A member of the RNA family "Y RNA" from Macaca mulatta, 95 nucleotides long. A search with the family's covariance model found it, with a score of 51 bits. About the family: Y RNAs are components of the Ro ribonucleoprotein particle (Ro RNP), in association with Ro60 and La proteins. The Y RNAs and Ro60 and La proteins are well conserved, but the function of the Ro RNP is not known. In humans the RNA component can be one of four small RNAs -- hY1, hY3, hY4 and hY5. These small RNAs are predicted to fold into a conserved secondary structure containing three stem structures. By type it is a non-coding RNA gene.
RNA sequence: GGCCAGUCUGAAUACAGUGGUGUUAAGUAUACACAGCCAGUUACGGAUGUCCUUGUUUCUUCUCCACCCCCACUGCUUCAUUUUACUAGCCUUAA
Numbered sequence: 001g002g003c004c005a006g007u008c009u010g011a012a013u014a015c016a017g018u019g020g021u022g023u024u025a026a027g028u029a030u031a032c033a034c035a036g037c038c039a040g041u042u043a044c045g046g047a048u049g050u051c052c053u054u055g056u057u058u059c060u061u062c063u064c065c066a067c068c069c070c071c072a073c074u075g076c077u078u079c080a081u082u083u084u085a086c087u088a089g090c091c092u093u094a095a
Base pairs, nucleotide, nucleotide: 001091002090003089005087006086007085010083011082016074017073018072019071020070022069025057026056029053